[Rfam]
RNA sequence: CCAGGAAGUACUGAUAGUGGUGGAUCGUCAGAACAACGAUUCACGUUGCAUAGACAAACGGUCAUCCACAAGAAGUUAUCGACGUUAAUCUGCACGCAUAAGCAGCUAGCGAUAUUCUUUAGUUUUGGAAGUGAUGUACGGAGCACAAGAGCAAUGAAAUUACCGAUUUAUCUGGAUUACUC
Dot-bracket structure: ((((((.........(((.(((..((((.......))))..))))))...(.(((.....))))..(.(.((......(.(.(((........)))..).)....)).).)...........))))))...((((........((.........))..))))....................
Numbered sequence: 001c002c003a004g005g006a007a008g009u010a011c012u013g014a015u016a017g018u019g020g021u022g023g024a025u026c027g028u029c030a031g032a033a034c035a036a037c038g039a040u041u042c043a044c045g046u047u048g049c050a051u052a053g054a055c056a057a058a059c060g061g062u063c064a065u066c067c068a069c070a071a072g073a074a075g076u077u078a079u080c081g082a083c084g085u086u087a088a089u090c091u092g093c094a095c096g097c098a099u100a101a102g103c104a105g106c107u108a109g110c111g112a113u114a115u116u117c118u119u120u121a122g123u124u125u126u127g128g129a130a131g132u133g134a135u136g137u138a139c140g141g142a143g144c145a146c147a148a149g150a151g152c153a154a155u156g157a158a159a160u161u162a163c164c165g166a167u168u169u170a171u172c173u174g175g176a177u178u179a180c181u182c
Stems, first nucleotide, its partner, number of pairs: 001128006016047003020044003025039004051064001053063003067111001069109001071107002079101001081099001083096003132162004144156002
The record is a 182-nucleotide RNA sequence from Serratia symbiotica, which matches "IscS-1 ICR thermometer" in Rfam. Rfam links the family to the GO terms regulation of translation and response to temperature stimulus. About the family: Imprinting control region from upstream of iscS-1 (cysteine desulfurase). Rfam classes the family as an RNA thermoregulator.